[Rfam]
RNA sequence: AGAGAGGGUGAUACGAACGCCUUCUAUUCACUUUGCCAUCUUUUCUGUUGAUGAACGAAGGGGAAAAGAAGGCAAGAACAACAAUCAUGAGCGUCCUCAUACUGUCUUUUGCAAAAUCUUUUGUCUACAUAAGAUUAGUGUAUCGCAUUAAGUCGGUAACUGCGUGAAUGAGAUAUUU
Numbered sequence: 001a002g003a004g005a006g007g008g009u010g011a012u013a014c015g016a017a018c019g020c021c022u023u024c025u026a027u028u029c030a031c032u033u034u035g036c037c038a039u040c041u042u043u044u045c046u047g048u049u050g051a052u053g054a055a056c057g058a059a060g061g062g063g064a065a066a067a068g069a070a071g072g073c074a075a076g077a078a079c080a081a082c083a084a085u086c087a088u089g090a091g092c093g094u095c096c097u098c099a100u101a102c103u104g105u106c107u108u109u110u111g112c113a114a115a116a117u118c119u120u121u122u123g124u125c126u127a128c129a130u131a132a133g134a135u136u137a138g139u140g141u142a143u144c145g146c147a148u149u150a151a152g153u154c155g156g157u158a159a160c161u162g163c164g165u166g167a168a169u170g171a172g173a174u175a176u177u178u
Stems, first nucleotide, its partner, number of pairs: 019073002022070002031060002034057002037053004086170003091165003102156003106152003110147003124134002
RNA: Small nucleolar RNA snR8